[Rfam]
RNA sequence: AGCUUAUCCAGAAAGACUGAGGGAACGGGCCCUAUGACGUCUUAGCAUCCUAUUCAUCAACGAAGGUUGAAAGAGUGUUGUGCUAAAUCCCAUUCGUAGCAUUGCGAAAUGUAGCGGAAAAGAUAAGCG
Number, nucleotide and partner (000 for none) at each position: 001a000002g128003c127004u126005u125006a124007u123008c122009c000010a000011g000012a000013a043014a042015g041016a040017c039018u000019g000020a000021g032022g031023g030024a000025a000026c000027g091028g090029g089030c023031c022032c021033u000034a000035u000036g000037a000038c000039g017040u016041c015042u014043u013044a084045g083046c082047a081048u000049c080050c000051u000052a076053u075054u074055c073056a000057u000058c000059a000060a000061c000062g000063a000064a000065g000066g000067u000068u000069g000070a000071a000072a000073g055074a054075g053076u052077g000078u000079u000080g049081u047082g046083c045084u044085a000086a000087a000088u121089c029090c028091c027092a000093u118094u117095c116096g115097u114098a000099g000100c000101a000102u000103u000104g000105c000106g000107a000108a000109a000110u000111g000112u000113a000114g097115c096116g095117g094118a093119a000120a000121a088122g008123a007124u006125a005126a004127g003128c002129g000
RNA: SAM riboswitch aptamer (S box leader)